[Rfam]
This 380-nucleotide sequence from Pasteurella multocida belongs to the Rfam family "Bacterial RNase P class A". The organism belongs to Pasteurella multocida subsp. multocida, within Bacteria. Rfam classes the family as a ribozyme. Rfam links the family to the GO terms ribonuclease P activity, dimeric ribonuclease P complex and tRNA processing. From the family's description: Ribonuclease P (RNase P) is a ubiquitous endoribonuclease, found in archaea, bacteria and eukarya as well as chloroplasts and mitochondria.
RNA sequence: UGAGUUGGUCAGACAAUCGCUGGUUUAUUGAAGCCCUUAACCGUCUUUAUGACGACCUAGUGGGACAAAUAGACGAGAGGAAAGUCCGAGCUACACAGGGCAGAGUGCCAGGUAACGCCUGGGAGGCGCGAGCCUACGACAAGUGCAACAGAGAGCAGACCGCCAGUUUCGGCUGGUAAGGGUGAAAGGGUGCGGUAAGAGCGCACCGCAUGGCUGGCAACAGUACAUGGCAGGGUAAACUCCACUCGUAGCAAGACCAAAUAGGAAUCCAAUGAGUGGCCCGCUCAGGAUUCGGGUAGGUUGCUUGAGCGUAUGUGCGAAUGUACGCCUAGAGGAAUGAUUGUCCGCGACAGAACUCGGCUUAUCGACCAACUCAGUAC
Numbered sequence: 001u002g003a004g005u006u007g008g009u010c011a012g013a014c015a016a017u018c019g020c021u022g023g024u025u026u027a028u029u030g031a032a033g034c035c036c037u038u039a040a041c042c043g044u045c046u047u048u049a050u051g052a053c054g055a056c057c058u059a060g061u062g063g064g065a066c067a068a069a070u071a072g073a074c075g076a077g078a079g080g081a082a083a084g085u086c087c088g089a090g091c092u093a094c095a096c097a098g099g100g101c102a103g104a105g106u107g108c109c110a111g112g113u114a115a116c117g118c119c120u121g122g123g124a125g126g127c128g129c130g131a132g133c134c135u136a137c138g139a140c141a142a143g144u145g146c147a148a149c150a151g152a153g154a155g156c157a158g159a160c161c162g163c164c165a166g167u168u169u170c171g172g173c174u175g176g177u178a179a180g181g182g183u184g185a186a187a188g189g190g191u192g193c194g195g196u197a198a199g200a201g202c203g204c205a206c207c208g209c210a211u212g213g214c215u216g217g218c219a220a221c222a223g224u225a226c227a228u229g230g231c232a233g234g235g236u237a238a239a240c241u242c243c244a245c246u247c248g249u250a251g252c253a254a255g256a257c258c259a260a261a262u263a264g265g266a267a268u269c270c271a272a273u274g275a276g277u278g279g280c281c282c283g284c285u286c287a288g289g290a291u292u293c294g295g296g297u298a299g300g301u302u303g304c305u306u307g308a309g310c311g312u313a314u315g316u317g318c319g320a321a322u323g324u325a326c327g328c329c330u331a332g333a334g335g336a337a338u339g340a341u342u343g344u345c346c347g348c349g350a351c352a353g354a355a356c357u358c359g360g361c362u363u364a365u366c367g368a369c370c371a372a373c374u375c376a377g378u379a380c
Stems, first nucleotide, its partner, number of pairs: 001376010011365001012345007020077002023074006082363003086360005091251004098282004103247005108122005123137001124135004138242002143240002145236002160181002162177006189207006208231001209229004214223003255302004265293006273287005309328008